[Rfam]
RNA sequence: UUUGUAGGUAGAGGUGCAAUGUUUAAUAGUAAUAUAGUGGAGGUAAGCACUGUGAAGCUAUAUGAAAGGAAAUAUUGCCGAAACAUACAACUGAUGCUUUAAGGUUGUAUAGUUGGUUUUGCAUAGAAUAUGUGCGGAACUGUCACAAAGUUAUUUGUGGAGAGCUAUCAUUCAA
Numbered sequence: 001u002u003u004g005u006a007g008g009u010a011g012a013g014g015u016g017c018a019a020u021g022u023u024u025a026a027u028a029g030u031a032a033u034a035u036a037g038u039g040g041a042g043g044u045a046a047g048c049a050c051u052g053u054g055a056a057g058c059u060a061u062a063u064g065a066a067a068g069g070a071a072a073u074a075u076u077g078c079c080g081a082a083a084c085a086u087a088c089a090a091c092u093g094a095u096g097c098u099u100u101a102a103g104g105u106u107g108u109a110u111a112g113u114u115g116g117u118u119u120u121g122c123a124u125a126g127a128a129u130a131u132g133u134g135c136g137g138a139a140c141u142g143u144c145a146c147a148a149a150g151u152u153a154u155u156u157g158u159g160g161a162g163a164g165c166u167a168u169c170a171u172u173c174a175a
Stems, first nucleotide, its partner, number of pairs: 007169005016078009032063007082114003085110008115141011143160007
Dot-bracket structure: ......(((((....(((((((((.......(((((((..................)))))))......)))))))))...(((((((((((..........)))))))).)))(((((((((((.....))))))))))).(((((((....)))))))....)))))......

Shown here is a 175-nucleotide RNA sequence from Proteiniborus ethanoligenes, a member of the family "Lysine riboswitch aptamer". Pairs were carried over by alignment from the consensus structure, which is taken from published work. Its family is annotated with lysine biosynthetic process in the Gene Ontology.